[Rfam]
Shown here is a 78-nucleotide sequence from Pongo pygmaeus, a member of the family "mir-1295 microRNA precursor family".
It is one of the family's seed sequences.
The family's consensus secondary structure was predicted with RNAalifold.
Lineage of the source: Eukaryota > Vertebrata > Teleostomi > Amniota > Pongo.
RNA sequence: AGGACAUUUUACCCAGAUCCGUGGCCUAUUCAGAAAUGUGGCCUGUGAUUAGGCCGCAGAUCUGGGUGAAAUGUCCUC
Numbered sequence: 001a002g003g004a005c006a007u008u009u010u011a012c013c014c015a016g017a018u019c020c021g022u023g024g025c026c027u028a029u030u031c032a033g034a035a036a037u038g039u040g041g042c043c044u045g046u047g048a049u050u051a052g053g054c055c056g057c058a059g060a061u062c063u064g065g066g067u068g069a070a071a072u073g074u075c076c077u078c
Base pairs, nucleotide, nucleotide: 001077002076003075004074005073006072007071008070009069010068011067012066013065014064015063016062017061018060019059021057022056023055024054025053026052027051028050030048031047032046034044